The family of this 105-nucleotide RNA sequence from Macrococcoides bohemicum is "SAM riboswitch aptamer (S box leader)". Lineage of the source: Bacteria > Bacillota > Bacilli > Staphylococcaceae > Macrococcoides. The family's consensus secondary structure is taken from published work.
RNA sequence: UAUUUAUCAAGAGUGACUGAGGGAUUAGGCCCUAUGACGUCCAGCAACCUAUCCACACGGAAAAGGUGCCAAUUCCUACAGUACAAUUGUGCUGAAAGAUAAGUA
Numbered sequence: 001u002a003u004u005u006a007u008c009a010a011g012a013g014u015g016a017c018u019g020a021g022g023g024a025u026u027a028g029g030c031c032c033u034a035u036g037a038c039g040u041c042c043a044g045c046a047a048c049c050u051a052u053c054c055a056c057a058c059g060g061a062a063a064a065g066g067u068g069c070c071a072a073u074u075c076c077u078a079c080a081g082u083a084c085a086a087u088u089g090u091g092c093u094g095a096a097a098g099a100u101a102a103g104u105a
Stems, first nucleotide, its partner, number of pairs: 001105008013042001015041003021032003026078004044069003048066002050062001052060002074097001079094006
Dot-bracket structure: ((((((((....(.(((...(((..[[[[)))......)))).(((.(((.((.....)).)..)))))....(]]]]((((((....))))))..)))))))))